[Rfam]
RNA sequence: AGGUAAUGUCUCCUAACCUAUAUCGAUGGAGAUACUCGGCUAUGCUGUGGGCUUACUGAAAAGGUGAGCCUUAGGUGCUUUUGUCACCAAUGGUAUAGUGUGAGGUCGGGUUAAAUGCCCU
Numbered sequence: 001a002g003g004u005a006a007u008g009u010c011u012c013c014u015a016a017c018c019u020a021u022a023u024c025g026a027u028g029g030a031g032a033u034a035c036u037c038g039g040c041u042a043u044g045c046u047g048u049g050g051g052c053u054u055a056c057u058g059a060a061a062a063g064g065u066g067a068g069c070c071u072u073a074g075g076u077g078c079u080u081u082u083g084u085c086a087c088c089a090a091u092g093g094u095a096u097a098g099u100g101u102g103a104g105g106u107c108g109g110g111u112u113a114a115a116u117g118c119c120c121u
Stems, first nucleotide, its partner, number of pairs: 001019004007034007035104004039099008049071008074088004108120004

Overview: This 121-nucleotide sequence from Alkalihalobacillus alcalophilus belongs to the Rfam family "epsC RNA". Lineage of the source: Bacteria > Bacillati > Caryophanales > Bacillaceae > Alkalihalobacillus alcalophilus.